[Rfam]
RNA sequence: AGCGGGGCUAGGUCGGCCAACCGAAAAGCGGGAAACCCUACCCGCCUGUCUCGCUAAACUUUAAUAUAGGG
Numbered sequence: 001a002g003c004g005g006g007g008c009u010a011g012g013u014c015g016g017c018c019a020a021c022c023g024a025a026a027a028g029c030g031g032g033a034a035a036c037c038c039u040a041c042c043c044g045c046c047u048g049u050c051u052c053g054c055u056a057a058a059c060u061u062u063a064a065u066a067u068a069g070g071g
Base pairs, nucleotide, nucleotide: 001055002054003053004052005051006050007049008048011022012021013020028045029044030043031042032041036071037070038069039068040067

The family of this 71-nucleotide sequence from Yersinia pseudotuberculosis is "int-alpA RNA". The source organism's lineage runs through Bacteria, Gammaproteobacteria, Enterobacterales, Yersinia and Yersinia pseudotuberculosis. The family's RNA type in Rfam is small RNA.